Background
The record is a 192-nucleotide RNA sequence from Undibacterium sp. KW1, which matches "FMN riboswitch aptamer (RFN element)" in Rfam. Taxonomically the source falls in Undibacterium (Bacteria, Pseudomonadota, Betaproteobacteria, Oxalobacteraceae). Its family is annotated with FMN binding in the Gene Ontology.
RNA sequence: GUACGUCUUCAGGGCGGGGUGUAAUUCCCCACCGGCGGUAAAUUCACCACAUUGCCUUGGUAAUGCGCGUGAACAAGCCCGCGAGCGCUUGCAGUAAAAAACGGUUGCAGUGAGUUGCAGCAGUUUGCAAGGUCAGCAGAUCUGGUGAGAUUCCAGGGCCGACGGUCAUAGUCCGGAUGAGAGAAGAUGCGC
Numbered sequence: 001g002u003a004c005g006u007c008u009u010c011a012g013g014g015c016g017g018g019g020u021g022u023a024a025u026u027c028c029c030c031a032c033c034g035g036c037g038g039u040a041a042a043u044u045c046a047c048c049a050c051a052u053u054g055c056c057u058u059g060g061u062a063a064u065g066c067g068c069g070u071g072a073a074c075a076a077g078c079c080c081g082c083g084a085g086c087g088c089u090u091g092c093a094g095u096a097a098a099a100a101a102c103g104g105u106u107g108c109a110g111u112g113a114g115u116u117g118c119a120g121c122a123g124u125u126u127g128c129a130a131g132g133u134c135a136g137c138a139g140a141u142c143u144g145g146u147g148a149g150a151u152u153c154c155a156g157g158g159c160c161g162a163c164g165g166u167c168a169u170a171g172u173c174c175g176g177a178u179g180a181g182a183g184a185a186g187a188u189g190c191g192c
Stems, first nucleotide, its partner, number of pairs: 004189007017029003031172002033161002035082004077159002085137002141157005163175003